[Rfam]
Shown here is a 112-nucleotide RNA sequence from Lentibacillus sp. CBA3610, a member of the family "PyrR binding site".
RNA sequence: UGAACCUUUAACAUAGUCCAGUGAGGCUAAAAAGGUACCUGAAUAUUUUGUUUACGUGAAUUAAGUAUGUUCAAAUCCCUUUUUGCCUUAUUGGUGAAAAGGGAUUUUUCAG
Dot-bracket structure: ...((((((....(((((......))))).))))))....(.((((((.((((....)))).)))))).)..((((((((((((((.......)))))))))))))).....
Record summary
NCBI's taxonomy places the organism under Bacteria, Bacillati, Caryophanales, Bacillaceae, Lentibacillus.